Rfam assigns this 112-nucleotide sequence from Oryza sativa to the family "mir-172 microRNA precursor family". Rfam links the family to the GO terms RISC complex and miRNA-mediated post-transcriptional gene silencing. On this family, see Jones-Rhoades and Bartel, Mol Cell 2004: "Computational Identification of Plant MicroRNAs and Their Targets, Including a Stress-Induced miRNA". Rfam's curators put it in the seed alignment. mir-172 has been experimentally verified in Arabidopsis thaliana. This family is thought to target mRNAs coding for APETALA2-like transcription factors. The mature sequence is excised from the 3' arm of the hairpin. The family has 11 seed sequences and 2,076 matches in Rfam 15.1.
RNA sequence: GUGCUUGCAGGUGCAGCACCAUCAAGAUUCACAUCGAGUUCAUCCCUAAACGAGAUCGAGGUUGGCUGACUAUAUGUGAUGAGAAUCUUGAUGAUGCUGCAUCAGCAAACGC
Number, nucleotide and partner (000 for none) at each position: 001g000002u000003g000004c000005u000006u000007g000008c000009a000010g103011g102012u101013g100014c099015a098016g097017c096018a095019c000020c093021a092022u091023c090024a089025a088026g087027a086028u085029u084030c083031a000032c081033a080034u000035c000036g000037a000038g000039u000040u000041c000042a000043u000044c000045c000046c000047u000048a000049a000050a000051c000052g000053a000054g000055a000056u000057c000058g000059a000060g000061g000062u000063u000064g000065g000066c000067u000068g000069a000070c000071u000072a000073u000074a000075u000076g000077u000078g000079a000080u033081g032082a000083g030084a029085a028086u027087c026088u025089u024090g023091a022092u021093g020094a000095u018096g017097c016098u015099g014100c013101a012102u011103c010104a000105g000106c000107a000108a000109a000110c000111g000112c000